[Rfam]
RNA: t44 RNA
RNA sequence: UAAAUUUUAAUACUAAAUCACACACAUACUCUUUAGAGUAAAUCGGGGUGCCAAACGGUCGAUUUACUUAGUAUGUGGAGGCUAAAC
Numbered sequence: 001u002a003a004a005u006u007u008u009a010a011u012a013c014u015a016a017a018u019c020a021c022a023c024a025c026a027u028a029c030u031c032u033u034u035a036g037a038g039u040a041a042a043u044c045g046g047g048g049u050g051c052c053a054a055a056c057g058g059u060c061g062a063u064u065u066a067c068u069u070a071g072u073a074u075g076u077g078g079a080g081g082c083u084a085a086a087c
Stems, first nucleotide, its partner, number of pairs: 023077008037068009050059003